[Rfam]
RNA sequence: ACCUCAUCCAGAGGGGUGGAGGGAUCGGCCCUGUGAAGCCCCGGCAACCAUCGCGGUAACGCAACCUCAGUAAGGCGAGGCAAGCGCGCGACUGGUGCCAAGUCCGGCCUGCGGUCAUGGUGACCGCUGGGAAAGAUGGGAG
Numbered sequence: 001a002c003c004u005c006a007u008c009c010a011g012a013g014g015g016g017u018g019g020a021g022g023g024a025u026c027g028g029c030c031c032u033g034u035g036a037a038g039c040c041c042c043g044g045c046a047a048c049c050a051u052c053g054c055g056g057u058a059a060c061g062c063a064a065c066c067u068c069a070g071u072a073a074g075g076c077g078a079g080g081c082a083a084g085c086g087c088g089c090g091a092c093u094g095g096u097g098c099c100a101a102g103u104c105c106g107g108c109c110u111g112c113g114g115u116c117a118u119g120g121u122g123a124c125c126g127c128u129g130g131g132a133a134a135g136a137u138g139g140g141a142g
Stems, first nucleotide, its partner, number of pairs: 003140006013042005021031003025107004043099004048095002051091004103134001108130002111127006
Dot-bracket structure: ..((((((....(((((...(((.[[[[)))......)))))((((.((.((((.................................))))..))))))...(]]]]((.((((((.....)))))).))...)))))))..
The record is a 142-nucleotide RNA from Trebonia kvetii, which matches "SAM riboswitch aptamer (S box leader)" in Rfam. It scores 69 bits against the family's covariance model. Lineage of the source: Bacteria > Bacillati > Actinomycetota > Streptosporangiales > Trebonia.